[Rfam]
RNA sequence: ACUUUUGCGCAGUGGCAGUAUCGUAGCCAAUGAGGUUUAUCCGAGGCACGAUUAUUGCUAAUUGAAAACAAAAUUCACACACUAGUAGUGGGAGAUUUCAACACCCCACUCUCACCAAUGGACAGGUUUGCCAAAC
Numbered sequence: 001a002c003u004u005u006u007g008c009g010c011a012g013u014g015g016c017a018g019u020a021u022c023g024u025a026g027c028c029a030a031u032g033a034g035g036u037u038u039a040u041c042c043g044a045g046g047c048a049c050g051a052u053u054a055u056u057g058c059u060a061a062u063u064g065a066a067a068a069c070a071a072a073a074u075u076c077a078c079a080c081a082c083u084a085g086u087a088g089u090g091g092g093a094g095a096u097u098u099c100a101a102c103a104c105c106c107c108a109c110u111c112u113c114a115c116c117a118a119u120g121g122a123c124a125g126g127u128u129u130g131c132c133a134a135a136c
Base pairs, nucleotide, nucleotide: 020052021051022050023049024048026047027046028045034042035041085115086114087110088109089108090107091106092105096101126136127135128134
Dot-bracket structure: ...................(((((.(((.....((.....))..))))))))................................((((((((...(....)...))))))...))..........(((.....)))